SAM (S-adenosyl methionine) riboswitch aptamer: a 111-nucleotide RNA from Kineococcus radiotolerans. Rfam links the family to the GO terms S-adenosylmethionine metabolic process and regulation of gene expression. The base pairs follow the family's consensus structure, which is taken from published work. A search with the family's covariance model found it, with a score of 105 bits. Taxonomically the source falls in Kineococcus radiotolerans (Bacteria, Bacillati, Actinomycetes, Kineosporiales).
RNA sequence: GGUCAUGAGUGACAGCUGUAGGCCCUGGCUGGCUGUCCGGCAACCCUCCUUCCGUGGCGGGGUGCCCCAGGUGACGACCCGGCCGGGCGACGUGCCCGGCAAGUGCGGAGC
Dot-bracket structure: ((((....(.((((((....((......)).)))))))(((..(((.((......))..))).))).........))))..((((((((...))))))))...........